About this RNA
Glycine riboswitch aptamer: a 99-nucleotide RNA from Qipengyuania algicida. Lineage of the source: Bacteria > Pseudomonadota > Sphingomonadales > Erythrobacteraceae > Qipengyuania. From the family's description: This family represents the bacterial glycine riboswitch. A search with the family's covariance model found it, with a score of 57 bits.
[Rfam]
RNA sequence: CAGGCACGCGCGGGAGAGCCUGCGGGGGAGCGAUCCCUUGCGGCGCCGAAGGAGCAACCGCCCCGGAAACUCUCAGGCAAACGGGACCGCGCGGGCUAU
Numbered sequence: 001c002a003g004g005c006a007c008g009c010g011c012g013g014g015a016g017a018g019c020c021u022g023c024g025g026g027g028g029a030g031c032g033a034u035c036c037c038u039u040g041c042g043g044c045g046c047c048g049a050a051g052g053a054g055c056a057a058c059c060g061c062c063c064c065g066g067a068a069a070c071u072c073u074c075a076g077g078c079a080a081a082c083g084g085g086a087c088c089g090c091g092c093g094g095g096c097u098a099u
Stems, first nucleotide, its partner, number of pairs: 007093007020043010045078003048074002052072003058066002